[Rfam]
RNA sequence: UAGUUUGUGUCUUUGGUUAUCUAGCUGUAUGAGUUUUAAUUUCAUAAAGCUAGAGAACCGAAAGUACGAACUG
Dot-bracket structure: (((((.((((.(((((((.(((((((.((((((.......)))))).))))))).))))))).)))).)))))
Rfam assigns this 73-nucleotide sequence from Oryzias latipes to the family "mir-9/mir-79 microRNA precursor family". The source organism's lineage runs through Eukaryota, Teleostei, Acanthomorphata, Adrianichthyidae and Oryzias. The literature on the family includes a 2001 paper in Science by Lagos-Quintana et al., "Identification of novel genes coding for small expressed RNAs". The base pairs follow the family's consensus structure, which was predicted with RNAalifold.